[Rfam]
RNA sequence: GCCGGUCCUCGGUAGUGGCCCCCUGGCCAGGACAAACCCAGGGGACUUCGAUCGAAGACCGGC
Numbered sequence: 001g002c003c004g005g006u007c008c009u010c011g012g013u014a015g016u017g018g019c020c021c022c023c024u025g026g027c028c029a030g031g032a033c034a035a036a037c038c039c040a041g042g043g044g045a046c047u048u049c050g051a052u053c054g055a056a057g058a059c060c061g062g063c
Stems, first nucleotide, its partner, number of pairs: 001063007009055005017047002020044007
This 63-nucleotide RNA sequence from Saccharothrix variisporea belongs to the Rfam family "Actino-pnp RNA". NCBI's taxonomy places the organism under Bacteria, Bacillati, Actinomycetota, Pseudonocardiales, Saccharothrix. The family's RNA type in Rfam is cis-regulatory element.